[Rfam]
The record is a 212-nucleotide RNA sequence, which matches "Group II catalytic intron D1-D4-5" in Rfam. The pairing is the family consensus, mapped onto this sequence.
RNA sequence: GAGAACUGAUAUUCCGAUGGGUGAAAUGAGGGGGUAACGUCCCGAAGCGCCACCCUAAUACUCCGAAUGGCGGGGAGCAUGCAACGGCUCUCUCCAAAAGUUUAUAGAGCUCGGUGAAGUCGGCAGAGAGCAAUCGUAAGACUGGUUUUCAGGCCAGACACGAAAGCUGUCCAGAGGUGGAUGGUGUUGCCUAUAUGCCGGGGGUCGGAUAU
Numbered sequence: 001g002a003g004a005a006c007u008g009a010u011a012u013u014c015c016g017a018u019g020g021g022u023g024a025a026a027u028g029a030g031g032g033g034g035u036a037a038c039g040u041c042c043c044g045a046a047g048c049g050c051c052a053c054c055c056u057a058a059u060a061c062u063c064c065g066a067a068u069g070g071c072g073g074g075g076a077g078c079a080u081g082c083a084a085c086g087g088c089u090c091u092c093u094c095c096a097a098a099a100g101u102u103u104a105u106a107g108a109g110c111u112c113g114g115u116g117a118a119g120u121c122g123g124c125a126g127a128g129a130g131c132a133a134u135c136g137u138a139a140g141a142c143u144g145g146u147u148u149u150c151a152g153g154c155c156a157g158a159c160a161c162g163a164a165a166g167c168u169g170u171c172c173a174g175a176g177g178u179g180g181a182u183g184g185u186g187u188u189g190c191c192u193a194u195a196u197g198c199c200g201g202g203g204g205u206c207g208g209a210u211a212u
Base pairs, nucleotide, nucleotide: 020051021050022049023048031043032042033041034040054204055203056202065112066111068109070095072093073092074091075090076089077088121200122199123198124197125196130190131189132188133187134186135162136161137160144155145154166185167184168183169182170181171180172179173178
Gene Ontology term of the family: Group II intron splicing. Rfam's curators write: Group II introns are found in rRNA, tRNA and mRNA of organelles in fungi, plants and protists, and also in mRNA in bacteria. On this family, see Bonen and Vogel, Trends Genet 2001: "The ins and outs of group II introns".